RNA sequence: AGAUGAGAGAAACACCCCGCUCGCAGGAGACUGCGGGCGAUGCCGGGACGGGGCUCCCCCCGCACCGACCCGGCCGUGCCCUUGCGCACACCGCUGGAGCUUCGGGCUCCGGAACUCCUCACCGAUCGGA
Numbered sequence: 001a002g003a004u005g006a007g008a009g010a011a012a013c014a015c016c017c018c019g020c021u022c023g024c025a026g027g028a029g030a031c032u033g034c035g036g037g038c039g040a041u042g043c044c045g046g047g048a049c050g051g052g053g054c055u056c057c058c059c060c061c062g063c064a065c066c067g068a069c070c071c072g073g074c075c076g077u078g079c080c081c082u083u084g085c086g087c088a089c090a091c092c093g094c095u096g097g098a099g100c101u102u103c104g105g106g107c108u109c110c111g112g113a114a115c116u117c118c119u120c121a122c123c124g125a126u127c128g129g130a
Stems, first nucleotide, its partner, number of pairs: 004121004009117002018039009042074006049067003053063002076089004094112006100105001122129002
Rfam assigns this 130-nucleotide RNA from Streptomyces sp. ADI97-07 to the family "Streptomyces RNA 5676". From the family's description: Identified by deep sequencing of transcriptome at the end of exponential growth phase. It scores 120 bits against the family's covariance model. On this family, see Vockenhuber et al., RNA Biol 2011: "Deep sequencing-based identification of small non-coding RNAs in Streptomyces coelicolor". Lineage of the source: Bacteria > Bacillati > Actinomycetes > Kitasatosporales > Streptomyces.